[Rfam]
RNA sequence: AUGAAGGCAAGGGGAGAGACUACGUCAUGUAGCGCCGAAGGAGCAAACGAAGCUGUGAAUCUCUCAGGCAAAAGAACUCUUGCUGGACG
Dot-bracket structure: .....((((((((......((((.....)))).(((((..(((...((......))....))))).))).......)))))))).....
This 89-nucleotide sequence from Peribacillus asahii belongs to the Rfam family "Glycine riboswitch aptamer". The organism belongs to Peribacillus, within Bacteria.